A member of the RNA family "mir-8364 microRNA precursor family" from Pristionchus pacificus, 61 nucleotides long. Rfam 15.1 lists 3,320 matches to the family in 2 species. NCBI's taxonomy places the organism under Eukaryota, Opisthokonta, Metazoa, Bilateria, Pristionchus.
RNA sequence: UCUUCAUUUCACUCACUCUCUCACCGGUCAGAGAGGAGAGAUAGUGCACAAAAUGAAGAGA
Numbered sequence: 001u002c003u004u005c006a007u008u009u010c011a012c013u014c015a016c017u018c019u020c021u022c023a024c025c026g027g028u029c030a031g032a033g034a035g036g037a038g039a040g041a042u043a044g045u046g047c048a049c050a051a052a053a054u055g056a057a058g059a060g061a
Stems, first nucleotide, its partner, number of pairs: 001059007014046004019041004